This 111-nucleotide RNA from Lentihominibacter hominis belongs to the Rfam family "pan motif". Taxonomically the source falls in Lentihominibacter (Bacteria, Bacillati, Peptostreptococcales, Anaerovoracaceae). It scores 42 bits against the family's covariance model. Rfam classes the family as a cis-regulatory element.
RNA sequence: UGGGUGGUAUUCGUUUUUGAAACUAUACCAUAUAAAAUAGAACUGACAUAUUCAUUUUCCGGGUACGGCAGAAAAGCCGGACGCUUAUAUCCGAAAGGAACGAGACGGAGG
Numbered sequence: 001u002g003g004g005u006g007g008u009a010u011u012c013g014u015u016u017u018u019g020a021a022a023c024u025a026u027a028c029c030a031u032a033u034a035a036a037a038u039a040g041a042a043c044u045g046a047c048a049u050a051u052u053c054a055u056u057u058u059c060c061g062g063g064u065a066c067g068g069c070a071g072a073a074a075a076g077c078c079g080g081a082c083g084c085u086u087a088u089a090u091c092c093g094a095a096a097g098g099a100a101c102g103a104g105a106c107g108g109a110g111g
Stems, first nucleotide, its partner, number of pairs: 001030003004026005010021002082107002084104003088100001090099003